[Rfam]
RNA sequence: GGCGAUAAAUGGACGUCGAAAUAAGUCUUUCGGACCCGGGGGCGGUACCCGGCGCCUCCACCAAAGCCCGCAUUGUCGGCGGGUUUCGGCGGGGGCGAAAUAGGUUCGACGGGGGACCCAAAGGACGAUCUUUUGCCCGGCAUGAUACCGCCGUUAUCGGGUCAACCUUAUAGUUGCCAACGACAACUAUGCUCCGGUGGCCCUCGCCGCGUAA
Dot-bracket structure: (((((........((((........(((.(((...(((((.......)))))(((((((...............................)))))))............))).))).......)))).....)))))((((........)))).............................................................
RNA: permuted transfer-messenger RNA